[Rfam]
Shown here is a 153-nucleotide RNA from Cribrihabitans marinus, a member of the family "Ruegeria cis2 sRNA". For this family Rfam cites "Experimental Identification of Small Non-Coding RNAs in the Model Marine Bacterium Ruegeria pomeroyi DSS-3" (Rivers et al., Front Microbiol, 2016). Lineage of the source: Bacteria > Pseudomonadota > Alphaproteobacteria > Paracoccaceae > Cribrihabitans.
RNA sequence: ACUGGAGUUCUGCGGGAAAUAGUUUCGGAAGACAAAGCCCCGGCACUGGUCGAUGGCAUGGAACAACGGGUUCCAGUCGAACAGCGGCAGCAUGUAGCCCGACAGCGAGUUGCCCAGGACCAUCUUGCCCGAGAAGAUCAUGUUGGCGCGGCG
Numbered sequence: 001a002c003u004g005g006a007g008u009u010c011u012g013c014g015g016g017a018a019a020u021a022g023u024u025u026c027g028g029a030a031g032a033c034a035a036a037g038c039c040c041c042g043g044c045a046c047u048g049g050u051c052g053a054u055g056g057c058a059u060g061g062a063a064c065a066a067c068g069g070g071u072u073c074c075a076g077u078c079g080a081a082c083a084g085c086g087g088c089a090g091c092a093u094g095u096a097g098c099c100c101g102a103c104a105g106c107g108a109g110u111u112g113c114c115c116a117g118g119a120c121c122a123u124c125u126u127g128c129c130c131g132a133g134a135a136g137a138u139c140a141u142g143u144u145g146g147c148g149c150g151g152c153g
Stems, first nucleotide, its partner, number of pairs: 003034002008030002011027002014024002037057003041052004064153001067150002070082004086147001088145007099133001100131002103127003107123001110119002